[Rfam]
A member of the RNA family "Plastid-clpP 5UTR RNA" from Zingiber officinale, 69 nucleotides long. The family's consensus secondary structure was predicted with LocARNA. Rfam describes the family as follows. Plastid clpP is a non-coding RNA (ncRNA) recognised in plastids. It was found in the prime untranslated region (5UTR) of a protease complex subunit (clpP) in plastids, suggesting a posible cis-regulatory function. The literature on the family includes a 2023 paper in Plant Commun by Richter et al., "Retrograde signaling in plants: A critical review focusing on the GUN pathway and beyond". Rfam classes the family as a cis-regulatory element. The match comes from Rfam's covariance-model search (64 bits). The organism belongs to Zingiber, within Eukaryota.
RNA sequence: UUCCAAGUUGGUAUGAACAAAGAAAAGUAGAUCUAUUCUAUACCCGAUAAAUACUAAUAUGCAAUGGGA
Numbered sequence: 001u002u003c004c005a006a007g008u009u010g011g012u013a014u015g016a017a018c019a020a021a022g023a024a025a026a027g028u029a030g031a032u033c034u035a036u037u038c039u040a041u042a043c044c045c046g047a048u049a050a051a052u053a054c055u056a057a058u059a060u061g062c063a064a065u066g067g068g069a
Base pairs, nucleotide, nucleotide: 003022007018008017009016043068044067045066051060052059053058